[Rfam]
RNA sequence: GGAAGAAUAACAUAUUGAUUUCGUAUAUUCUCAAGAAUUGGCUUGAGAGUUUCUACAAGGUCACCGUAAAUGAUCUGGCUACGAAUCGGGUAUCGUAUGAA
Numbered sequence: 001g002g003a004a005g006a007a008u009a010a011c012a013u014a015u016u017g018a019u020u021u022c023g024u025a026u027a028u029u030c031u032c033a034a035g036a037a038u039u040g041g042c043u044u045g046a047g048a049g050u051u052u053c054u055a056c057a058a059g060g061u062c063a064c065c066g067u068a069a070a071u072g073a074u075c076u077g078g079c080u081a082c083g084a085a086u087c088g089g090g091u092a093u094c095g096u097a098u099g100a101a
Base pairs, nucleotide, nucleotide: 020085021084022083023082024081025080029048030047031046032045033044034043035042058076059075060074061073062072063071
The family of this 101-nucleotide sequence from Paenibacillus flagellatus is "Purine riboswitch aptamer".
Rfam links the family to the GO term purine nucleobase biosynthetic process.
Pairs were carried over by alignment from the consensus structure, which is taken from published work.
The literature on the family includes a 2003 paper in Cell by Mandal et al., "Riboswitches Control Fundamental Biochemical Pathways in Bacillus subtilis and Other Bacteria".
The match comes from Rfam's covariance-model search (71 bits).